[Rfam]
Record summary: The record is a 147-nucleotide RNA from Acaryochloris thomasi, which matches "Ribosomal protein L10 leader" in Rfam. NCBI's taxonomy places the organism under Bacteria, Cyanobacteriota, Cyanophyceae, Acaryochloridales, Acaryochloris thomasi. Rfam describes the family as follows. This family is a putative r-protein leader autoregulatory structure found in B. subtilis and other low-GC Gram-positive bacteria. Pairs were carried over by alignment from the consensus structure, which was predicted with CMfinder. Rfam links the family to the GO term regulation of gene expression.
RNA sequence: CCUACAACACGAUAGAAACCGAAGACCGUAGGGGCCAAUGGGCUUAAUAUCCUACCGAGGUGGAAUUGAUGUCACUCUGUUGCAUGAUGAUGCCAGGGAGACUGUUAUUCAGCCUCGGAUUGAUAUCCGGGGUUUUUAAUUAGGGCA
Numbered sequence: 001c002c003u004a005c006a007a008c009a010c011g012a013u014a015g016a017a018a019c020c021g022a023a024g025a026c027c028g029u030a031g032g033g034g035c036c037a038a039u040g041g042g043c044u045u046a047a048u049a050u051c052c053u054a055c056c057g058a059g060g061u062g063g064a065a066u067u068g069a070u071g072u073c074a075c076u077c078u079g080u081u082g083c084a085u086g087a088u089g090a091u092g093c094c095a096g097g098g099a100g101a102c103u104g105u106u107a108u109u110c111a112g113c114c115u116c117g118g119a120u121u122g123a124u125a126u127c128c129g130g131g132g133u134u135u136u137u138a139a140u141u142a143g144g145g146c147a
Stems, first nucleotide, its partner, number of pairs: 028055006034043003113132008